Rfam assigns this 184-nucleotide RNA from Mycobacterium sp. KMS to the family "Actinobacteria sRNA Ms_IGR-5".
On this family, see Li et al., RNA 2013: "Identification of small RNAs in Mycobacterium smegmatis using heterologous Hfq".
Rfam's curators put it in the seed alignment.
RNA sequence: ACACAGGGAAGGAGGUGGUCCGACAAAUUGAGUGACUUAUGGACAUGUGAGGUGGCUGCCCGCUAGCAGCACCGGGGAAGUCGAGCACCGACCUGUCGUGCGCUGGCGAAUUCCCCGCAGUCACCCGGCCCCCGAGCCCCUCGGUCCGUCCAACCAGGAACCAACGGCUCGGGGGUCGCCCAUA
Numbered sequence: 001a002c003a004c005a006g007g008g009a010a011g012g013a014g015g016u017g018g019u020c021c022g023a024c025a026a027a028u029u030g031a032g033u034g035a036c037u038u039a040u041g042g043a044c045a046u047g048u049g050a051g052g053u054g055g056c057u058g059c060c061c062g063c064u065a066g067c068a069g070c071a072c073c074g075g076g077g078a079a080g081u082c083g084a085g086c087a088c089c090g091a092c093c094u095g096u097c098g099u100g101c102g103c104u105g106g107c108g109a110a111u112u113c114c115c116c117g118c119a120g121u122c123a124c125c126c127g128g129c130c131c132c133c134g135a136g137c138c139c140c141u142c143g144g145u146c147c148g149u150c151c152a153a154c155c156a157g158g159a160a161c162c163a164a165c166g167g168c169u170c171g172g173g174g175g176u177c178g179c180c181c182a183u184a
Stems, first nucleotide, its partner, number of pairs: 014060006061108007069101004074094003126178013140158002143155003